[Rfam]
RNA sequence: GCCGACUGCAUUCCAAGCCACACACGUGCCGGCACAUGCAGCCGGGUGCCCGGACGCCGUCCCAGGGAUGGCUUCGGGGUUGCUGCAUGGGGUGCGUGGAGGUCCAAC
Dot-bracket structure: ......................((((((((....((((((((.....((((.........................)))).)))))))).))))))))..........
Numbered sequence: 001g002c003c004g005a006c007u008g009c010a011u012u013c014c015a016a017g018c019c020a021c022a023c024a025c026g027u028g029c030c031g032g033c034a035c036a037u038g039c040a041g042c043c044g045g046g047u048g049c050c051c052g053g054a055c056g057c058c059g060u061c062c063c064a065g066g067g068a069u070g071g072c073u074u075c076g077g078g079g080u081u082g083c084u085g086c087a088u089g090g091g092g093u094g095c096g097u098g099g100a101g102g103u104c105c106a107a108c
Stems, first nucleotide, its partner, number of pairs: 023098008035089008048080004
The family of this 108-nucleotide RNA from Thiohalocapsa marina is "t44 RNA". It scores 65 bits against the family's covariance model. Pairs were carried over by alignment from the consensus structure, which was predicted with LocARNA. Rfam classes the family as a small RNA.